[Rfam]
RNA: Group II catalytic intron D1-D4-7
RNA sequence: CCGCCCGUGUCACCGGGUGAAUCUACGGGCCUGAAUAAAGAGCGGCCCUGACAAUGAAACGAAGCACCGCAAGGUGCGGGGCAUCAAUCGCGAGAGGCGUGCCCUUCUGGGAGCCACAACCCGGAUGAGUGC
Numbered sequence: 001c002c003g004c005c006c007g008u009g010u011c012a013c014c015g016g017g018u019g020a021a022u023c024u025a026c027g028g029g030c031c032u033g034a035a036u037a038a039a040g041a042g043c044g045g046c047c048c049u050g051a052c053a054a055u056g057a058a059a060c061g062a063a064g065c066a067c068c069g070c071a072a073g074g075u076g077c078g079g080g081g082c083a084u085c086a087a088u089c090g091c092g093a094g095a096g097g098c099g100u101g102c103c104c105u106u107c108u109g110g111g112a113g114c115c116a117c118a119a120c121c122c123g124g125a126u127g128a129g130u131g132c
Base pairs, nucleotide, nucleotide: 002019003018004017005016006015007014027048028047029046030045031044032039064077065076066075067074068073079104080103081102082101088095089094106125107124108123109122110121111120